[Rfam]
This 123-nucleotide RNA sequence from Gellertiella hungarica belongs to the Rfam family "Rhizobiales sRNA Atu_C8".
Rfam classes the family as a small RNA.
A search with the family's covariance model found it, with a score of 121 bits.
On this family, see Wilms et al., RNA Biol 2012: "Deep sequencing uncovers numerous small RNAs on all four replicons of the plant pathogen Agrobacterium tumefaciens".
RNA sequence: GAACAACUUUGUUACUCUUAUUGUGGUGGGACCGCGCAUGGGCAGGAUGGUGUAACCAUCCGGCGUCAGCCACCCAUGCGCGAAACGACAGGCUCCUAAAGGAGCCUUUUUUUAUGUCUCAAU
Numbered sequence: 001g002a003a004c005a006a007c008u009u010u011g012u013u014a015c016u017c018u019u020a021u022u023g024u025g026g027u028g029g030g031a032c033c034g035c036g037c038a039u040g041g042g043c044a045g046g047a048u049g050g051u052g053u054a055a056c057c058a059u060c061c062g063g064c065g066u067c068a069g070c071c072a073c074c075c076a077u078g079c080g081c082g083a084a085a086c087g088a089c090a091g092g093c094u095c096c097u098a099a100a101g102g103a104g105c106c107u108u109u110u111u112u113u114a115u116g117u118c119u120c121a122a123u
Base pairs, nucleotide, nucleotide: 007028009026029119030118031117032116033082034081035080036079037078038077039076040075041074042073045061046060047059048058049057050056063070064069087108090107091106092105093104094103095102096101